[Rfam]
RNA sequence: AUCCAAACCCAAACACUACUCUUAAGCUUAUUUUUCAAGGUUCUUUACCUACCACCUCUAUAUUCAUCAUGUCUCCCUGUGCCUGCAACUGCUGCUCCGGCGAGUGCAACUCCUGCUCUUGCUCUACCUGCACUGUAUGUCAUU
Numbered sequence: 001a002u003c004c005a006a007a008c009c010c011a012a013a014c015a016c017u018a019c020u021c022u023u024a025a026g027c028u029u030a031u032u033u034u035u036c037a038a039g040g041u042u043c044u045u046u047a048c049c050u051a052c053c054a055c056c057u058c059u060a061u062a063u064u065c066a067u068c069a070u071g072u073c074u075c076c077c078u079g080u081g082c083c084u085g086c087a088a089c090u091g092c093u094g095c096u097c098c099g100g101c102g103a104g105u106g107c108a109a110c111u112c113c114u115g116c117u118c119u120u121g122c123u124c125u126a127c128c129u130g131c132a133c134u135g136u137a138u139g140u141c142a143u144u
Stems, first nucleotide, its partner, number of pairs: 078102003085095003106131003115122002